Rfam assigns this 76-nucleotide RNA sequence from Aquarana catesbeiana to the family "mir-19 microRNA precursor family". Taxonomically the source falls in Aquarana (Eukaryota, Deuterostomia, Chordata, Euteleostomi). The match comes from Rfam's covariance-model search (65 bits). Rfam links the family to the GO terms miRNA-mediated post-transcriptional gene silencing and RISC complex. The family's consensus secondary structure was predicted with RNAalifold. The family has 106 seed sequences and 2,337 matches in Rfam 15.1.
RNA sequence: UGUUCCUGUUAGUUUGGCUGGAUUGCACCAGCUGGAUACAAUUGCUGUGCAAAUCCAUGCAAAACUGACAGUGGCC
Number, nucleotide and partner (000 for none) at each position: 001u000002g000003u074004u073005c000006c071007u070008g069009u068010u067011a066012g065013u064014u063015u062016g000017g060018c059019u000020g056021g055022a000023u052024u051025g050026c049027a048028c047029c000030a046031g045032c044033u000034g000035g000036a000037u000038a000039c000040a000041a000042u000043u000044g032045c031046u030047g028048u027049g026050c025051a024052a023053a000054u000055c021056c020057a000058u000059g018060c017061a000062a015063a014064a013065c012066u011067g010068a009069c008070a007071g006072u000073g004074g003075c000076c000